The family of this 100-nucleotide sequence from Lates calcarifer is "Vault RNA". Lineage of the source: Eukaryota > Bilateria > Craniata > Euacanthomorphacea > Lates. Rfam classes the family as a non-coding RNA gene. About the family: This family of RNAs are found as part of the enigmatic vault ribonucleoprotein complex. The complex consists of a major vault protein (MVP), two minor vault proteins (VPARP and TEP1), and several small untranslated RNA molecules. It has been suggested that the vault complex is involved in drug resistance.
[Rfam]
RNA sequence: GUGCUGGUUUAGCUCAGUGGUUACUUCGAACAAAUUCAACUCUGAAUAUCGCUCUCUCUCCCGUCCUGGGAUCGAACCACGGGCGCUGUCCAGUGCUUUU
Number, nucleotide and partner (000 for none) at each position: 001g000002u095003g094004c093005u092006g091007g090008u000009u000010u000011a000012g084013c083014u082015c081016a000017g080018u079019g078020g077021u000022u000023a000024c000025u076026u075027c074028g073029a072030a000031c000032a000033a000034a000035u000036u000037c000038a000039a000040c000041u000042c000043u000044g000045a000046a000047u000048a000049u000050c000051g000052c000053u000054c000055u000056c000057u000058c000059u000060c000061c000062c000063g000064u000065c000066c000067u000068g000069g000070g000071a000072u029073c028074g027075a026076a025077c020078c019079a018080c017081g015082g014083g013084c012085g000086c000087u000088g000089u000090c007091c006092a005093g004094u003095g002096c000097u000098u000099u000100u000